[Rfam]
RNA sequence: CUGCAAAUGAUGAGUUAAUCCCAUUUGAUAAAAAGAAGCUCAAAAUCCUUGAGCGGUGUUGGAAAUCAUAAACUUCCAUGACUCUGAUGCAU
Numbered sequence: 001c002u003g004c005a006a007a008u009g010a011u012g013a014g015u016u017a018a019u020c021c022c023a024u025u026u027g028a029u030a031a032a033a034a035g036a037a038g039c040u041c042a043a044a045a046u047c048c049u050u051g052a053g054c055g056g057u058g059u060u061g062g063a064a065a066u067c068a069u070a071a072a073c074u075u076c077c078a079u080g081a082c083u084c085u086g087a088u089g090c091a092u
Base pairs, nucleotide, nucleotide: 002091003090004089005088038054039053040052041051042050043049
Small nucleolar RNA R72: a 92-nucleotide RNA sequence from Brassica rapa.
Lineage of the source: Eukaryota > Embryophyta > Spermatophyta > Mesangiospermae > Brassica.
Rfam's curators write: snoR72 is a C/D box small nucleolar RNA, which acts as a methylation guide for 25S ribosomal RNA in Arabidopsis.
It is annotated as a C/D-box small nucleolar RNA.